[Rfam]
RNA sequence: GUCGUCUGGAUGAAACACAAGAUUUACACGUGUGACGUGUAUAUGUGGGCGACGUAAAAUUUUUACU
Number, nucleotide and partner (000 for none) at each position: 001g053002u052003c051004g050005u049006c048007u000008g000009g000010a000011u000012g066013a000014a064015a063016c047017a046018c045019a000020a000021g000022a044023u043024u000025u041026a040027c039028a038029c037030g036031u000032g000033u000034g000035a000036c030037g029038u028039g027040u026041a025042u000043a023044u022045g018046u017047g016048g006049g005050c004051g003052a002053c001054g000055u000056a000057a000058a000059a000060u000061u000062u000063u015064u014065a000066c012067u000
The record is a 67-nucleotide RNA sequence from uncultured human fecal virus, which matches "Pseudoknot of tRNA-like structure" in Rfam. The base pairs follow the family's consensus structure, which is taken from published work. Rfam links the family to the GO term regulation of viral genome replication. Rfam classes the family as a cis-regulatory element.